This 80-nucleotide sequence from Cnephaeus nilssonii belongs to the Rfam family "mir-9186 microRNA precursor family". Lineage of the source: Eukaryota > Opisthokonta > Chordata > Vespertilionidae > Cnephaeus. The family's consensus secondary structure was predicted with RNAalifold. The family has 31 seed sequences and 143 matches in Rfam 15.1.
[Rfam]
RNA sequence: UAGGGGGAGGUUGGCGGUAUCACUGUUACUUAUGUAAUGGCUGCUCACAGUACCAGAAAUGCUAUCCCCCUCCCCCUACA
Numbered sequence: 001u002a003g004g005g006g007g008a009g010g011u012u013g014g015c016g017g018u019a020u021c022a023c024u025g026u027u028a029c030u031u032a033u034g035u036a037a038u039g040g041c042u043g044c045u046c047a048c049a050g051u052a053c054c055a056g057a058a059a060u061g062c063u064a065u066c067c068c069c070c071u072c073c074c075c076c077u078a079c080a
Base pairs, nucleotide, nucleotide: 001078002077003076004075005074007072008071009070010069013066014065016063017062018061019060020059023056024055025054027052028051029050030049